[Rfam]
RNA sequence: UUGAAUAAAAAGCCGAAUUUCUUUUUGAAAACGGGGGAACCAUUUGUAACAAAGGGGUGAAUUCAAUUCCAUCUUCGCGAUGGAGUUGAUAGGGUACCUGUGAAUCCGAAUCCGUCAGCUAACCUCGUAGGCUUUAUGCAGGAACCUA
Numbered sequence: 001u002u003g004a005a006u007a008a009a010a011a012g013c014c015g016a017a018u019u020u021c022u023u024u025u026u027g028a029a030a031a032c033g034g035g036g037g038a039a040c041c042a043u044u045u046g047u048a049a050c051a052a053a054g055g056g057g058u059g060a061a062u063u064c065a066a067u068u069c070c071a072u073c074u075u076c077g078c079g080a081u082g083g084a085g086u087u088g089a090u091a092g093g094g095u096a097c098c099u100g101u102g103a104a105u106c107c108g109a110a111u112c113c114g115u116c117a118g119c120u121a122a123c124c125u126c127g128u129a130g131g132c133u134u135u136a137u138g139c140a141g142g143a144a145c146c147u148a
Stems, first nucleotide, its partner, number of pairs: 011133004018030003031128006041054001055113003063089011092107004
This 148-nucleotide RNA from Paenibacillus rigui belongs to the Rfam family "c-di-AMP riboswitch aptamer (ydaO/yuaA leader)".
About the family: This family represents a conserved RNA structure found upstream of the ydaO and yuaA genes in Bacillus subtilis and related genes in other bacteria.
NCBI's taxonomy places the organism under Bacteria, Bacillati, Bacilli, Caryophanales, Paenibacillus.
Rfam links the family to the GO terms cyclic-di-AMP binding and regulation of gene expression.